The family of this 87-nucleotide RNA from Caenorhabditis remanei is "mir-43 microRNA precursor family". Rfam links the family to the GO terms miRNA-mediated post-transcriptional gene silencing and RISC complex. The source organism's lineage runs through Eukaryota, Chromadorea, Rhabditoidea, Peloderinae and Caenorhabditis.

[Rfam]
RNA sequence: UUCUGCCCGUGACAACAAGAAACUUGUGAUUAUGCCUAGAGAAUGAAGAAGGGACAUAUCACAGUUUACUUGCUGUCGCAGGCGGUG
Number, nucleotide and partner (000 for none) at each position: 001u000002u000003c085004u084005g083006c082007c081008c000009g079010u078011g077012a076013c075014a074015a000016c072017a071018a070019g069020a067021a066022a065023c064024u063025u000026g062027u061028g060029a059030u058031u000032a057033u056034g055035c053036c000037u000038a000039g000040a000041g000042a000043a000044u000045g000046a000047a000048g000049a000050a000051g000052g000053g035054a000055c034056a033057u032058a030059u029060c028061a027062c026063a024064g023065u022066u021067u020068a000069c019070u018071u017072g016073c000074u014075g013076u012077c011078g010079c009080a000081g007082g006083c005084g004085g003086u000087g000